This 75-nucleotide RNA sequence from Lentzea albidocapillata belongs to the Rfam family "Actino-pnp RNA". It is annotated as a cis-regulatory element. The base pairs follow the family's consensus structure, which is taken from published work. Taxonomically the source falls in Lentzea (Bacteria, Bacillati, Actinomycetes, Pseudonocardiaceae).

[Rfam]
RNA sequence: GCCGGUCCUCGGUAGUGGCCUCCUGGUUGCCAAGUGAAUCUGGCAGUGCCCAGGGGACUUCGAUCGAAGACCGGC
Numbered sequence: 001g002c003c004g005g006u007c008c009u010c011g012g013u014a015g016u017g018g019c020c021u022c023c024u025g026g027u028u029g030c031c032a033a034g035u036g037a038a039u040c041u042g043g044c045a046g047u048g049c050c051c052a053g054g055g056g057a058c059u060u061c062g063a064u065c066g067a068a069g070a071c072c073g074g075c
Base pairs, nucleotide, nucleotide: 001075002074003073004072005071006070007069009067010066011065012064013063017059018058020056021055022054023053024052025051026050029049030048